[Rfam]
RNA sequence: UGACUAUCCGUGGGCGGGACUAACAGGGACAGGAGGGACCUGGAGGGGGAGGAAGGAGGGCUAACGAAGACAAAAGGAGUCAAACUCUUCCGACAUCAAGGAACCUGCCGCGUCAGAAUCAAGGUAAGUAGCGUCCAAUGGGACAAGAAUUAAGCCAACAUCAAAUAUAUGUAGGCCAAUUAAAAGAGGCUUUAAAGAUACGAGGAGUAAAGGUUAAAGGUAAUGAUUUGUUUAAAUUUUUGAUUUUGUAAAAGACACUUGCCCUU
Numbered sequence: 001u002g003a004c005u006a007u008c009c010g011u012g013g014g015c016g017g018g019a020c021u022a023a024c025a026g027g028g029a030c031a032g033g034a035g036g037g038a039c040c041u042g043g044a045g046g047g048g049g050a051g052g053a054a055g056g057a058g059g060g061c062u063a064a065c066g067a068a069g070a071c072a073a074a075a076g077g078a079g080u081c082a083a084a085c086u087c088u089u090c091c092g093a094c095a096u097c098a099a100g101g102a103a104c105c106u107g108c109c110g111c112g113u114c115a116g117a118a119u120c121a122a123g124g125u126a127a128g129u130a131g132c133g134u135c136c137a138a139u140g141g142g143a144c145a146a147g148a149a150u151u152a153a154g155c156c157a158a159c160a161u162c163a164a165a166u167a168u169a170u171g172u173a174g175g176c177c178a179a180u181u182a183a184a185a186g187a188g189g190c191u192u193u194a195a196a197g198a199u200a201c202g203a204g205g206a207g208u209a210a211a212g213g214u215u216a217a218a219g220g221u222a223a224u225g226a227u228u229u230g231u232u233u234a235a236a237u238u239u240u241u242g243a244u245u246u247u248g249u250a251a252a253a254g255a256c257a258c259u260u261g262c263c264c265u266u
Base pairs, nucleotide, nucleotide: 004026005025030042031041032040084125085124086123088122089121094116097112100109101108131144134142135141136140151194152193153192154190155189156188201242202241203240204239206238207237208236211229212228213227214226215225216224251266252265254263256261
RNA: Mason-Pfizer monkey virus packaging signal